RNA sequence: UGGACAUUGAUCUUAUUUCAGUUUCUCCUUCAUGUGGAGAUAACUGAUCCUCAGUGUCCCACAUAAACAUAGAAGCUAUCUGUUCACUCUUGGAAAGUAAACAAGGGUUGGAUCGUUCCACUUCUGACAAAU
Numbered sequence: 001u002g003g004a005c006a007u008u009g010a011u012c013u014u015a016u017u018u019c020a021g022u023u024u025c026u027c028c029u030u031c032a033u034g035u036g037g038a039g040a041u042a043a044c045u046g047a048u049c050c051u052c053a054g055u056g057u058c059c060c061a062c063a064u065a066a067a068c069a070u071a072g073a074a075g076c077u078a079u080c081u082g083u084u085c086a087c088u089c090u091u092g093g094a095a096a097g098u099a100a101a102c103a104a105g106g107g108u109u110g111g112a113u114c115g116u117u118c119c120a121c122u123u124c125u126g127a128c129a130a131a132u
Stems, first nucleotide, its partner, number of pairs: 002059009020045004024040005070126006089105004
This 132-nucleotide sequence belongs to the Rfam family "Small Cajal body specific RNA 24". The family has 23 seed sequences and 689 matches in Rfam 15.1. The literature on the family includes a 2002 paper in EMBO J by Darzacq et al., "Cajal body-specific small nuclear RNAs: a novel class of 2'-O-methylation and pseudouridylation guide RNAs". The family's consensus secondary structure was predicted with RNAfold. Rfam's curators put it in the seed alignment. Rfam's curators write: scaRNAs are a specific class of small nuclear RNAs which localise to the Cajal bodies and guide the modification of RNA polymerase II transcribed spliceosomal RNAs U1, U2, U4, U5 and U12. ACA12 belongs to the H/ACA box class of guide RNAs as it has the predicted hairpin-hinge-hairpin-tail structure,the conserved H/ACA-box motifs and is found associated with GAR1.